[Rfam]
Nucleotides: 037
Base pairs, nucleotide, nucleotide: 002021003020004019005018010036011035012034
Number, partner (000 for none) and nucleotide at each position: 001000g002021u003020a004019g005018c006000g007000g008000u009000a010036g011035c012034c013000g014000a015000a016000a017000a018005g019004c020003u021002g022000a023000a024000u025000g026000a027000a028000a029000g030000a031000g032000u033000a034012g035011g036010c037000a

The family of this 37-nucleotide RNA from Chitinophaga oryziterrae is "DUF805b RNA". Lineage of the source: Bacteria > Pseudomonadati > Bacteroidota > Chitinophagaceae > Chitinophaga. The base pairs follow the family's consensus structure, which is taken from published work.